RNA sequence: CUACAGGUCUUAUUGGAACAUUAGCUUUAUGAUAGAUAUGAUAUCUCCCUAAAAUUCAUAAAGCUAAUGUUCCAAUAAGACCUGUAG
Dot-bracket structure: (((((.((((((((((((((((((((.(((((.......................))))).)))))))))))))))))))).)))))
Numbered sequence: 001c002u003a004c005a006g007g008u009c010u011u012a013u014u015g016g017a018a019c020a021u022u023a024g025c026u027u028u029a030u031g032a033u034a035g036a037u038a039u040g041a042u043a044u045c046u047c048c049c050u051a052a053a054a055u056u057c058a059u060a061a062a063g064c065u066a067a068u069g070u071u072c073c074a075a076u077a078a079g080a081c082c083u084g085u086a087g
Stems, first nucleotide, its partner, number of pairs: 001087005007081020028060005

Rfam assigns this 87-nucleotide RNA sequence from Diabrotica balteata to the family "mir-9/mir-79 microRNA precursor family". Its family is annotated with RISC complex and miRNA-mediated post-transcriptional gene silencing in the Gene Ontology. Rfam 15.1 lists 5,647 matches to the family in 934 species. NCBI's taxonomy places the organism under Eukaryota, Bilateria, Hexapoda, Chrysomelidae, Diabrotica. A reference for the family is Lagos-Quintana et al. (2001), "Identification of novel genes coding for small expressed RNAs", Science.